[Rfam]
RNA sequence: ACUCUCAUGGGGAGAGUUUAUGCGGAAACCCACCGCGUACCAGGCUAGAACCUGGCAACAAAUAAAAGGAGAAACAAAUG
Numbered sequence: 001a002c003u004c005u006c007a008u009g010g011g012g013a014g015a016g017u018u019u020a021u022g023c024g025g026a027a028a029c030c031c032a033c034c035g036c037g038u039a040c041c042a043g044g045c046u047a048g049a050a051c052c053u054g055g056c057a058a059c060a061a062a063u064a065a066a067a068g069g070a071g072a073a074a075c076a077a078a079u080g
Base pairs, nucleotide, nucleotide: 001017002016003015004014005013006012019039020038021037022036023035024034025033040055041054042053043052
The family of this 80-nucleotide sequence is "freshwater-2 RNA". Rfam classes the family as a cis-regulatory element.